[Rfam]
RNA sequence: GGGUUCCAAAGAGUUCAGCUUCUGAGCUACAUACGGGGUGCUUGGUCACCCAUAUCGCUCAGGGGAAGGUCCUCGGAUACGCACGAUAGAAAGUAUCGGCAAUCUAAUCGAUUGAACUUCCGCAAUACAACGCUUGUAUGAGAAGAUUCCUGACGGAUGAUUUGGCAAAGUUGGUUGCGAGGAGACUGAUCCUAACACAGUCAUGCUGGGAAAAUCGAGAGUGAUUUUCGAAAACACAACGUGGCCUACUCCAGAGGAACU
Numbered sequence: 001g002g003g004u005u006c007c008a009a010a011g012a013g014u015u016c017a018g019c020u021u022c023u024g025a026g027c028u029a030c031a032u033a034c035g036g037g038g039u040g041c042u043u044g045g046u047c048a049c050c051c052a053u054a055u056c057g058c059u060c061a062g063g064g065g066a067a068g069g070u071c072c073u074c075g076g077a078u079a080c081g082c083a084c085g086a087u088a089g090a091a092a093g094u095a096u097c098g099g100c101a102a103u104c105u106a107a108u109c110g111a112u113u114g115a116a117c118u119u120c121c122g123c124a125a126u127a128c129a130a131c132g133c134u135u136g137u138a139u140g141a142g143a144a145g146a147u148u149c150c151u152g153a154c155g156g157a158u159g160a161u162u163u164g165g166c167a168a169a170g171u172u173g174g175u176u177g178c179g180a181g182g183a184g185a186c187u188g189a190u191c192c193u194a195a196c197a198c199a200g201u202c203a204u205g206c207u208g209g210g211a212a213a214a215u216c217g218a219g220a221g222u223g224a225u226u227u228u229c230g231a232a233a234a235c236a237c238a239a240c241g242u243g244g245c246c247u248a249c250u251c252c253a254g255a256g257g258a259a260c261u
Base pairs, nucleotide, nucleotide: 002261003260004259005258006257007256011252014210015209016208017207018206019205021063022062023061024060025059026058027057036051037050038049039048040047067247068246069245071244072243074241084098085097087095088094100114101113102112103111104110117182118181119180125176128173132171133170134169135168140162141161148157149156150155215231216230217229218228219227220226
Shown here is a 261-nucleotide RNA sequence from Diaphorina citri, a member of the family "RNase MRP". By type it is a ribozyme. For this family Rfam cites "Secondary structure of RNase MRP RNA as predicted by phylogenetic comparison" (Schmitt et al., FASEB J, 1993). It scores 80 bits against the family's covariance model.